[Rfam]
RNA sequence: GAGUUGUUGUUUGCAGCAAGGUUAAUCUCGUCAACGAGAGGAGCCGUAGGGAAACCGAGUCUUAAUAGGGCGAUUUAGUUGCAGAUAGCAGACCCGAAGCCAGUUGAUCUACCCAUGGUCAGGGUGAAGCGAGGGUAAGACCUCGUGGAGGCCCGAACCGGUGUUUGUUGCAAAAAGCUCGGAUGAACUGUGGGUAGGAGCGAAAGACUAAUCAAAACUGGUGAUAGCUGGUU
Numbered sequence: 001g002a003g004u005u006g007u008u009g010u011u012u013g014c015a016g017c018a019a020g021g022u023u024a025a026u027c028u029c030g031u032c033a034a035c036g037a038g039a040g041g042a043g044c045c046g047u048a049g050g051g052a053a054a055c056c057g058a059g060u061c062u063u064a065a066u067a068g069g070g071c072g073a074u075u076u077a078g079u080u081g082c083a084g085a086u087a088g089c090a091g092a093c094c095c096g097a098a099g100c101c102a103g104u105u106g107a108u109c110u111a112c113c114c115a116u117g118g119u120c121a122g123g124g125u126g127a128a129g130c131g132a133g134g135g136u137a138a139g140a141c142c143u144c145g146u147g148g149a150g151g152c153c154c155g156a157a158c159c160g161g162u163g164u165u166u167g168u169u170g171c172a173a174a175a176a177g178c179u180c181g182g183a184u185g186a187a188c189u190g191u192g193g194g195u196a197g198g199a200g201c202g203a204a205a206g207a208c209u210a211a212u213c214a215a216a217a218c219u220g221g222u223g224a225u226a227g228c229u230g231g232u233u
Stems, first nucleotide, its partner, number of pairs: 005090013020045004026039003049056002059071004093231002096228001100221006109197011120185001122154004129146006158182003163178004199209002
The family of this 233-nucleotide part of an RNA from uncultured Nitrospirae bacterium MY3-5B is "Bacterial large subunit ribosomal RNA". The base pairs follow the family's consensus structure, which is taken from published work. Taxonomically the source falls in Nitrospirota (Bacteria, Pseudomonadati).